The record is a 100-nucleotide sequence from Chlorogloeopsis fritschii, which matches "TPP riboswitch aptamer (THI element)" in Rfam.

RNA sequence: CUACCAUGCUAGGGGUGCCUCCUGCAUUUAGAGGCUGAGAUUACACCCUUAGAACCUGAAUCCGGGUAAUACCGGCGAAGGGAAGCUGUAUAUUGAGGAA
Numbered sequence: 001c002u003a004c005c006a007u008g009c010u011a012g013g014g015g016u017g018c019c020u021c022c023u024g025c026a027u028u029u030a031g032a033g034g035c036u037g038a039g040a041u042u043a044c045a046c047c048c049u050u051a052g053a054a055c056c057u058g059a060a061u062c063c064g065g066g067u068a069a070u071a072c073c074g075g076c077g078a079a080g081g082g083a084a085g086c087u088g089u090a091u092a093u094u095g096a097g098g099a100a
Stems, first nucleotide, its partner, number of pairs: 008086003011049004016043001017035005055081003062075004
Dot-bracket structure: .......(((((((.((((((.........))))).......)..)))).....(((....((((......))))...)))..)))..............
The base pairs follow the family's consensus structure, which is taken from published work.